A member of the RNA family "Eukaryotic small subunit ribosomal RNA" from Pseudovirgaria hyperparasitica, 542 nucleotides of a longer RNA. It scores 1508 bits against the family's covariance model. Its Rfam clan is "SSU clan". Rfam links the family to the GO terms ribosome and structural constituent of ribosome. NCBI's taxonomy places the organism under Eukaryota, Fungi, Ascomycota, Dothideomycetes, Pseudovirgaria.
[Rfam]
RNA sequence: AAAGUUAUUAUAGUUAAAAAGCUCGUAGUUGAACCUUGGGUUCGGCUAGCCGGUCCGCCUAACCGCGUACACUAGUCUAGCCGGGCCCUUACCUCUAGGGAGCCGCAUGCCCUUCACUAGGCGUGUUAGGGAACUAGGACUUUUACUUUAAAAAAAUUAGAGUAUUUAAAGUAGGCCUUUACUCGGAUACAUUAGUAUGGAAUAAUAGAAUAGGAUAGUAGUCUUAUUUUAUUAGUUUCUAAGAUUACUAUAAUAAUUAAUAGGGAUAGUCGGGGGCAUUAGUAUUCAGCCGUUAGAGGUAAAAUUCUUGGAUCGGCUAAAGACUAGCUACUGCGAAAGCAUUUACUAAGGAUGUUUUUAUUAAUUAGGGAACAAAAGUUAGGGGAUCGAAGACGAUUAGAUACCGUCGUAGUCUUAACCAUAAACUAUGCCGACUAGGGAUCGGGCGACGUUUCAAUAUUGACUCGCCCGGCACCUUACGAGAAAUCAAAGUUUUUGGGUUCUAGGGGGAGUAUAGUCGCAAGGCUAAAACUUAAAGAAAU
Numbered sequence: 001a002a003a004g005u006u007a008u009u010a011u012a013g014u015u016a017a018a019a020a021g022c023u024c025g026u027a028g029u030u031g032a033a034c035c036u037u038g039g040g041u042u043c044g045g046c047u048a049g050c051c052g053g054u055c056c057g058c059c060u061a062a063c064c065g066c067g068u069a070c071a072c073u074a075g076u077c078u079a080g081c082c083g084g085g086c087c088c089u090u091a092c093c094u095c096u097a098g099g100g101a102g103c104c105g106c107a108u109g110c111c112c113u114u115c116a117c118u119a120g121g122c123g124u125g126u127u128a129g130g131g132a133a134c135u136a137g138g139a140c141u142u143u144u145a146c147u148u149u150a151a152a153a154a155a156a157u158u159a160g161a162g163u164a165u166u167u168a169a170a171g172u173a174g175g176c177c178u179u180u181a182c183u184c185g186g187a188u189a190c191a192u193u194a195g196u197a198u199g200g201a202a203u204a205a206u207a208g209a210a211u212a213g214g215a216u217a218g219u220a221g222u223c224u225u226a227u228u229u230u231a232u233u234a235g236u237u238u239c240u241a242a243g244a245u246u247a248c249u250a251u252a253a254u255a256a257u258u259a260a261u262a263g264g265g266a267u268a269g270u271c272g273g274g275g276g277c278a279u280u281a282g283u284a285u286u287c288a289g290c291c292g293u294u295a296g297a298g299g300u301a302a303a304a305u306u307c308u309u310g311g312a313u314c315g316g317c318u319a320a321a322g323a324c325u326a327g328c329u330a331c332u333g334c335g336a337a338a339g340c341a342u343u344u345a346c347u348a349a350g351g352a353u354g355u356u357u358u359u360a361u362u363a364a365u366u367a368g369g370g371a372a373c374a375a376a377a378g379u380u381a382g383g384g385g386a387u388c389g390a391a392g393a394c395g396a397u398u399a400g401a402u403a404c405c406g407u408c409g410u411a412g413u414c415u416u417a418a419c420c421a422u423a424a425a426c427u428a429u430g431c432c433g434a435c436u437a438g439g440g441a442u443c444g445g446g447c448g449a450c451g452u453u454u455c456a457a458u459a460u461u462g463a464c465u466c467g468c469c470c471g472g473c474a475c476c477u478u479a480c481g482a483g484a485a486a487u488c489a490a491a492g493u494u495u496u497u498g499g500g501u502u503c504u505a506g507g508g509g510g511a512g513u514a515u516a517g518u519c520g521c522a523a524g525g526c527u528a529a530a531a532c533u534u535a536a537a538g539a540a541a542u
Stems, first nucleotide, its partner, number of pairs: 011505003019502001021373001023371002028365003263359004267354002270351002275347002278344001281325002285321002288318005296307003333340002378419006388412001392408004430501003433494003437477003442472008451464003481488002507534003516527004